Rfam assigns this 203-nucleotide sequence from Labrus bergylta to the family "Small nucleolar RNA U3". A search with the family's covariance model found it, with a score of 105 bits. The literature on the family includes a 1997 paper in Nucleic Acids Res by Zwieb, "The uRNA database". Rfam classes the family as a C/D-box small nucleolar RNA. Its Rfam clan is "U3 clan". Small nucleolar RNAs (snoRNAs) are involved in the processing and modification of rRNA in the nucleolus. There are two main classes of snoRNAs: the box C/D class, and the box H/ACA class. U3 snoRNA is a member of the box C/D class. The family's consensus secondary structure is taken from published work.

[Rfam]
RNA sequence: AAGACUAUACUUUCAGGGAUCAUUUCUUUAGUUGUUGCCUUGAGAAAUGUGUUUUGGAAGAGCUCGGUCUCGCUGUCCGAUGAAGAGUUCUGAUGUUUCUUUCAGAGCAGGAUACUGGUGGGAAGACUUUAUUUCUUCUCCACUGUUGAAGAUUGCUCAGAGUUUCUCAAACACUCUAAUGGUGGAAACAUUAUCUGAGUGGA
Numbered sequence: 001a002a003g004a005c006u007a008u009a010c011u012u013u014c015a016g017g018g019a020u021c022a023u024u025u026c027u028u029u030a031g032u033u034g035u036u037g038c039c040u041u042g043a044g045a046a047a048u049g050u051g052u053u054u055u056g057g058a059a060g061a062g063c064u065c066g067g068u069c070u071c072g073c074u075g076u077c078c079g080a081u082g083a084a085g086a087g088u089u090c091u092g093a094u095g096u097u098u099c100u101u102u103c104a105g106a107g108c109a110g111g112a113u114a115c116u117g118g119u120g121g122g123a124a125g126a127c128u129u130u131a132u133u134u135c136u137u138c139u140c141c142a143c144u145g146u147u148g149a150a151g152a153u154u155g156c157u158c159a160g161a162g163u164u165u166c167u168c169a170a171a172c173a174c175u176c177u178a179a180u181g182g183u184g185g186a187a188a189c190a191u192u193a194u195c196u197g198a199g200u201g202g203a
Stems, first nucleotide, its partner, number of pairs: 001041003005037001009032003015027004049065001051063001053062002076203003093191008102182003107156003117144005122138005159177004163171002